[Rfam]
Nucleotides: 259
Base pairs, nucleotide, nucleotide: 030060032058073214074213075212076211077210090205091204092203239257240256241255242254243253244252245251
Number, partner (000 for none) and nucleotide at each position: 001000a002000u003000g004000g005000a006000u007000u008000a009000a010000g011000a012000a013000a014000a015000a016000c017000a018000u019000g020000g021000c022000a023000a024000u025000u026000u027000g028000g029000a030060g031000u032058a033000a034000u035000g036000a037000g038000u039000g040000a041000u042000u043000a044000a045000c046000u047000u048000c049000a050000u051000g052000c053000c054000a055000u056000g057000c058032u059000c060030c061000a062000a063000a064000u065000u066000u067000a068000g069000a070000c071000a072000a073214u074213u075212u076211g077210u078000u079000u080000a081000u082000g083000c084000u085000u086000u087000a088000g089000c090205c091204a092203u093000c094000c095000g096000c097000a098000u099000g100000g101000u102000c103000u104000g105000c106000u107000a108000a109000u110000c111000a112000a113000u114000a115000u116000a117000g118000a119000g120000c121000u122000u123000u124000u125000u126000c127000a128000u129000g130000c131000a132000c133000u134000a135000u136000a137000u138000a139000g140000a141000a142000g143000a144000u145000u146000u147000u148000g149000a150000a151000g152000a153000u154000g155000a156000a157000g158000a159000u160000u161000c162000u163000a164000a165000g166000a167000a168000g169000u170000u171000c172000u173000a174000u175000c176000a177000c178000a179000u180000u181000g182000a183000g184000u185000a186000u187000g188000a189000u190000g191000a192000g193000g194000c195000u196000u197000u198000g199000g200000c201000u202000a203092a204091u205090g206000u207000g208000u209000u210077g211076c212075a213074a214073a215000a216000u217000g218000g219000c220000a221000a222000g223000u224000c225000a226000c227000a228000g229000a230000a231000a232000g233000g234000c235000g236000a237000u238000g239257a240256a241255c242254u243253c244252g245251a246000c247000u248000u249000a250000u251245u252244c253243g254242a255241g256240u257239u258000u259000u